[Rfam]
RNA sequence: CUCUUCUCUCAGCCUCUUUACGGUGCUGCCUUGUGGAAUCCGAUCAAGCAGCAUUGUACAGGGCUAUGAGAGCACAG
Numbered sequence: 001c002u003c004u005u006c007u008c009u010c011a012g013c014c015u016c017u018u019u020a021c022g023g024u025g026c027u028g029c030c031u032u033g034u035g036g037a038a039u040c041c042g043a044u045c046a047a048g049c050a051g052c053a054u055u056g057u058a059c060a061g062g063g064c065u066a067u068g069a070g071a072g073c074a075c076a077g
Stems, first nucleotide, its partner, number of pairs: 014063004019058010030048004
RNA: mir-103/107 microRNA precursor family
Organism: Clupea harengus